[Rfam]
RNA sequence: UUAUAAGCAAAAAACUACCUUUUAGGUUCAUUCAAAAACUGAUGUAUUUGGUCCAUAAUAUAGGCCAGAUACAUCAAUUUUUCAAUGAACCUAAAAAGUGAAUUUUUGCUUAUAA
Numbered sequence: 001u002u003a004u005a006a007g008c009a010a011a012a013a014a015c016u017a018c019c020u021u022u023u024a025g026g027u028u029c030a031u032u033c034a035a036a037a038a039c040u041g042a043u044g045u046a047u048u049u050g051g052u053c054c055a056u057a058a059u060a061u062a063g064g065c066c067a068g069a070u071a072c073a074u075c076a077a078u079u080u081u082u083c084a085a086u087g088a089a090c091c092u093a094a095a096a097a098g099u100g101a102a103u104u105u106u107u108g109c110u111u112a113u114a115a
Stems, first nucleotide, its partner, number of pairs: 002114006009107005016100003020096006027089006034082005040076005049067004
The record is a 115-nucleotide RNA from Trifolium medium, which matches "MIR2593 microRNA precursor family" in Rfam. The match comes from Rfam's covariance-model search (97 bits). Its family is annotated with miRNA-mediated post-transcriptional gene silencing and RISC complex in the Gene Ontology.